RNA sequence: UACAAAACAGUCGUUCGACUGAAAAGUAAGUCCCCCGGUUCAGGGGA
Numbered sequence: 001u002a003c004a005a006a007a008c009a010g011u012c013g014u015u016c017g018a019c020u021g022a023a024a025a026g027u028a029a030g031u032c033c034c035c036c037g038g039u040u041c042a043g044g045g046g047a
Stems, first nucleotide, its partner, number of pairs: 008021005033046004